Notes: Shown here is a 530-nucleotide part of an RNA from Kalanchoe fedtschenkoi, a member of the family "Eukaryotic small subunit ribosomal RNA". Clan: SSU clan. Rfam links the family to the GO terms structural constituent of ribosome and ribosome. A search with the family's covariance model found it, with a score of 1492 bits. Taxonomically the source falls in Kalanchoe (Eukaryota, Viridiplantae, Streptophyta, Magnoliopsida).

[Rfam]
RNA sequence: CAGUAAAAAGCUCGUAGUUGGACCUUGGGUUGGGACGUCCGGUCCUCCUUUCGGUGUGCACCAGCCGUCUCGGCCCUUCUGCCGGCGAUGCGCUCCUGGUCUUAACUGGCCGGGUCGUGCCUCUGGCGCUGUUACUUUUAAGAAAUUAGAGUGCUCAAAGCAAGCCUACACUCUGUAUACCGCAUGGGAUAACAUCAUAGGAUUUCGAUCCUAUUGUGUUGGCCUUCGGGAUCGCAGUAAUGAUUAACAGGGACAGUCUGGGGCAUUUGUAUUUCAUAGUCAGAGGUGAAAUUCUUGGAUUUAUGAAAGACGAACAACUGCGAAAGCAUUUGGCAAGGAUGUUUUCAUUAAUCAAGAACGAAAGUUGGGGGCUCGAACACGAUCAGAUACCGUCCUAGUCUCAACCAUAAACGAUGCCGACCAGGGAUCAGUGGAAGUUGCUUUAAGGACUCCACUGGCAUCUUAUGAGAAAUCAAAGUUUUUGGGUUCCGGGGGGAGUACGGUCGCAAGGCUGAAACUUAAAAAGGAAU
Numbered sequence: 001c002a003g004u005a006a007a008a009a010g011c012u013c014g015u016a017g018u019u020g021g022a023c024c025u026u027g028g029g030u031u032g033g034g035a036c037g038u039c040c041g042g043u044c045c046u047c048c049u050u051u052c053g054g055u056g057u058g059c060a061c062c063a064g065c066c067g068u069c070u071c072g073g074c075c076c077u078u079c080u081g082c083c084g085g086c087g088a089u090g091c092g093c094u095c096c097u098g099g100u101c102u103u104a105a106c107u108g109g110c111c112g113g114g115u116c117g118u119g120c121c122u123c124u125g126g127c128g129c130u131g132u133u134a135c136u137u138u139u140a141a142g143a144a145a146u147u148a149g150a151g152u153g154c155u156c157a158a159a160g161c162a163a164g165c166c167u168a169c170a171c172u173c174u175g176u177a178u179a180c181c182g183c184a185u186g187g188g189a190u191a192a193c194a195u196c197a198u199a200g201g202a203u204u205u206c207g208a209u210c211c212u213a214u215u216g217u218g219u220u221g222g223c224c225u226u227c228g229g230g231a232u233c234g235c236a237g238u239a240a241u242g243a244u245u246a247a248c249a250g251g252g253a254c255a256g257u258c259u260g261g262g263g264c265a266u267u268u269g270u271a272u273u274u275c276a277u278a279g280u281c282a283g284a285g286g287u288g289a290a291a292u293u294c295u296u297g298g299a300u301u302u303a304u305g306a307a308a309g310a311c312g313a314a315c316a317a318c319u320g321c322g323a324a325a326g327c328a329u330u331u332g333g334c335a336a337g338g339a340u341g342u343u344u345u346c347a348u349u350a351a352u353c354a355a356g357a358a359c360g361a362a363a364g365u366u367g368g369g370g371g372c373u374c375g376a377a378c379a380c381g382a383u384c385a386g387a388u389a390c391c392g393u394c395c396u397a398g399u400c401u402c403a404a405c406c407a408u409a410a411a412c413g414a415u416g417c418c419g420a421c422c423a424g425g426g427a428u429c430a431g432u433g434g435a436a437g438u439u440g441c442u443u444u445a446a447g448g449a450c451u452c453c454a455c456u457g458g459c460a461u462c463u464u465a466u467g468a469g470a471a472a473u474c475a476a477a478g479u480u481u482u483u484g485g486g487u488u489c490c491g492g493g494g495g496g497a498g499u500a501c502g503g504u505c506g507c508a509a510g511g512c513u514g515a516a517a518c519u520u521a522a523a524a525a526g527g528a529a530u
Stems, first nucleotide, its partner, number of pairs: 001491001003489001008488001010359001012357002017352003250346004254341002257338002262334001264332002268312002272308008283294003320327002364405006374398001379393003416487003419480003423463003428458008437450003467474002493520003502513004